[Rfam]
RNA sequence: CAGCAAGCCUUCCAGCGUGGCGGGGCCUGCGGUGGCCCCGGCCGUUCCUGCAGCGCUUGCGAGAGCAGCCCCGGGGUGGUUUGAGGCCUCGCCCUGCACCCCUCGGGGAGAGGUUAUAGAAACCCCAGACACGG
Dot-bracket structure: ..((((((.........(((..(((((......)))))...)))..........))))))............((((..........((((.(.(((.......))).).)))).........))))........
Numbered sequence: 001c002a003g004c005a006a007g008c009c010u011u012c013c014a015g016c017g018u019g020g021c022g023g024g025g026c027c028u029g030c031g032g033u034g035g036c037c038c039c040g041g042c043c044g045u046u047c048c049u050g051c052a053g054c055g056c057u058u059g060c061g062a063g064a065g066c067a068g069c070c071c072c073g074g075g076g077u078g079g080u081u082u083g084a085g086g087c088c089u090c091g092c093c094c095u096g097c098a099c100c101c102c103u104c105g106g107g108g109a110g111a112g113g114u115u116a117u118a119g120a121a122a123c124c125c126c127a128g129a130c131a132c133g134g
Stems, first nucleotide, its partner, number of pairs: 003060006018044003023038005073126004087113004092108001094106003

The record is a 134-nucleotide sequence from Anseranas semipalmata, which matches "Small nucleolar RNA SNORA9" in Rfam. Rfam links the family to the GO terms nucleolus and RNA processing. NCBI's taxonomy places the organism under Eukaryota, Opisthokonta, Amniota, Anseranatidae, Anseranas. Rfam describes the family as follows. ACA9 is a member of the H/ACA class of snoRNA that guide the sites of modification of uridines to pseudouridines.